Shown here is a 98-nucleotide RNA from Cavia porcellus, a member of the family "Y RNA".
[Rfam]
RNA sequence: GGCUGGUCUGACGGCAGUGGGUUAUCAGAACUUACUAACAUUAGUGUCACUAAAGUUGGUACACCACCCACCCCACUGCUAAAUUAGACUGGCUUAAA
Numbered sequence: 001g002g003c004u005g006g007u008c009u010g011a012c013g014g015c016a017g018u019g020g021g022u023u024a025u026c027a028g029a030a031c032u033u034a035c036u037a038a039c040a041u042u043a044g045u046g047u048c049a050c051u052a053a054a055g056u057u058g059g060u061a062c063a064c065c066a067c068c069c070a071c072c073c074c075a076c077u078g079c080u081a082a083a084u085u086a087g088a089c090u091g092g093c094u095u096a097a098a
Base pairs, nucleotide, nucleotide: 001094002093003092004091005090006089007088008087011085016077017076018075019074020073021072033061034060035059037057038056

It scores 59 bits against the family's covariance model. On this family, see Teunissen et al., Nucleic Acids Res 2000: "Conserved features of Y RNAs: a comparison of experimentally derived secondary structures". Y RNAs are components of the Ro ribonucleoprotein particle (Ro RNP), in association with Ro60 and La proteins. The Y RNAs and Ro60 and La proteins are well conserved, but the function of the Ro RNP is not known. In humans the RNA component can be one of four small RNAs -- hY1, hY3, hY4 and hY5. These small RNAs are predicted to fold into a conserved secondary structure containing three stem structures.